[Rfam]
RNA sequence: UUCUUAUCCAGAGAGGCGGAGGGAAUUGACCCUGUGAAGCCUCGGCAACAGACUCCCCUAUGAGCACUGUGCCAACUUCAACAAGCUGCUGGCUUGAAAGAUAAGAA
Numbered sequence: 001u002u003c004u005u006a007u008c009c010a011g012a013g014a015g016g017c018g019g020a021g022g023g024a025a026u027u028g029a030c031c032c033u034g035u036g037a038a039g040c041c042u043c044g045g046c047a048a049c050a051g052a053c054u055c056c057c058c059u060a061u062g063a064g065c066a067c068u069g070u071g072c073c074a075a076c077u078u079c080a081a082c083a084a085g086c087u088g089c090u091g092g093c094u095u096g097a098a099a100g101a102u103a104a105g106a107a
Stems, first nucleotide, its partner, number of pairs: 001107008013043005021032003026081004044073004049069002051065001054062001077099001082096006
The record is a 107-nucleotide RNA sequence from Fictibacillus enclensis, which matches "SAM riboswitch aptamer (S box leader)" in Rfam.
The match comes from Rfam's covariance-model search (88 bits).
The organism belongs to Fictibacillus, within Bacteria.
The base pairs follow the family's consensus structure, which is taken from published work.